Rfam assigns this 102-nucleotide RNA from Paenalkalicoccus suaedae to the family "Purine riboswitch aptamer". On this family, see Batey et al., Nature 2004: "Structure of a natural guanine-responsive riboswitch complexed with the metabolite hypoxanthine". The match comes from Rfam's covariance-model search (89 bits). The base pairs follow the family's consensus structure, which is taken from published work. Taxonomically the source falls in Paenalkalicoccus (Bacteria, Bacillati, Bacillota, Bacillaceae).
RNA sequence: AUAAAAAAUCUGUCGAACGUUCGUAUAAUAUUGGGGAUAAGGCCCAAAAGUUUCUACCGAAUCACCGUAAAUGAUUCGACUACGAACGAUGAAGCGAAACGG
Numbered sequence: 001a002u003a004a005a006a007a008a009u010c011u012g013u014c015g016a017a018c019g020u021u022c023g024u025a026u027a028a029u030a031u032u033g034g035g036g037a038u039a040a041g042g043c044c045c046a047a048a049a050g051u052u053u054c055u056a057c058c059g060a061a062u063c064a065c066c067g068u069a070a071a072u073g074a075u076u077c078g079a080c081u082a083c084g085a086a087c088g089a090u091g092a093a094g095c096g097a098a099a100c101g102g
Stems, first nucleotide, its partner, number of pairs: 018088008029049001031047005058078007
Dot-bracket structure: .................((((((((...(.(((((.......))))).)........(((((((.......)))))))..))))))))..............